[Rfam]
RNA sequence: GGAAGAAUUCGACCGGACACAACAAUCUGCAGCAUUGUUGUGCAAGACCUGCAGUGUCAGUCGGUUUAUUCC
Numbered sequence: 001g002g003a004a005g006a007a008u009u010c011g012a013c014c015g016g017a018c019a020c021a022a023c024a025a026u027c028u029g030c031a032g033c034a035u036u037g038u039u040g041u042g043c044a045a046g047a048c049c050u051g052c053a054g055u056g057u058c059a060g061u062c063g064g065u066u067u068a069u070u071c072c
Stems, first nucleotide, its partner, number of pairs: 001072004006067002009064005021039006046058003
Dot-bracket structure: ((((.((.(((((.......((((((.......))))))......(((.......))).))))).)).))))
RNA: bZIP non canonical Hac1/Xbp1 intron